[Rfam]
RNA sequence: GCAGCAGGCCGUCUUAUCGCUCUAAAGCAAUUUGGAGAGGAAAGUCCGGACACCAUAGGGAAGCAUAACGGUUAACGGCCGUCGUUCGCCUCAGGCGAAUAGGACUAGUGCAACAGAAAGAAUGUACAGGUAAUGCUGUAGUGAAACCAGGUAAACUCUAUGCGGUGAAAUGCCACGUAAACCAGCGUUAAGGGUUCCCGCCCGAUGCUGGAGGGUAGGCAGCUAGAGCGUUGCAGUAAUGUAACGUCCAGAUAAAUGAUAAGGGUUCGUCUUAGAUGAAUACAGAAUCCGGCUUAUAGGCCUGCUUUUUUU
Numbered sequence: 001g002c003a004g005c006a007g008g009c010c011g012u013c014u015u016a017u018c019g020c021u022c023u024a025a026a027g028c029a030a031u032u033u034g035g036a037g038a039g040g041a042a043a044g045u046c047c048g049g050a051c052a053c054c055a056u057a058g059g060g061a062a063g064c065a066u067a068a069c070g071g072u073u074a075a076c077g078g079c080c081g082u083c084g085u086u087c088g089c090c091u092c093a094g095g096c097g098a099a100u101a102g103g104a105c106u107a108g109u110g111c112a113a114c115a116g117a118a119a120g121a122a123u124g125u126a127c128a129g130g131u132a133a134u135g136c137u138g139u140a141g142u143g144a145a146a147c148c149a150g151g152u153a154a155a156c157u158c159u160a161u162g163c164g165g166u167g168a169a170a171u172g173c174c175a176c177g178u179a180a181a182c183c184a185g186c187g188u189u190a191a192g193g194g195u196u197c198c199c200g201c202c203c204g205a206u207g208c209u210g211g212a213g214g215g216u217a218g219g220c221a222g223c224u225a226g227a228g229c230g231u232u233g234c235a236g237u238a239a240u241g242u243a244a245c246g247u248c249c250a251g252a253u254a255a256a257u258g259a260u261a262a263g264g265g266u267u268c269g270u271c272u273u274a275g276a277u278g279a280a281u282a283c284a285g286a287a288u289c290c291g292g293c294u295u296a297u298a299g300g301c302c303u304g305c306u307u308u309u310u311u312u
Base pairs, nucleotide, nucleotide: 001308003306004305005304006303007302008301009300010299011297012264013263014262015261016260017259018258020037021036022035023034024033025032026031042295043294044293046292047291048290049289050288051167052166053165054164058199059198060197061196063163064162065161066160067159068082069081070080071079072078083102084100085099086098087097088096089095090094103158104157108156109155110152111151125140126139127138128137129136171221172220173219174218182211183210184209185208186207192203193202194201228247229246230245231244232243233242234241235240
Dot-bracket structure: (.((((((((((((((((.(((((((....)))))))....[[[.[[[[[((((...[[[[.((((((((((.....)))))((((((((...))))))).)((...((((.............(((((......)))))..........))..)))))))))))))...((((.......(((((.....(((.]]]].)))...)))))......))))......((((((((....))))))))..........))))))).......................]]]]]]]].).)))))))).)....

Overview
Rfam assigns this 312-nucleotide sequence from Rasiella rasia to the family "Bacterial RNase P class A". A search with the family's covariance model found it, with a score of 190 bits. The organism belongs to Rasiella, within Bacteria.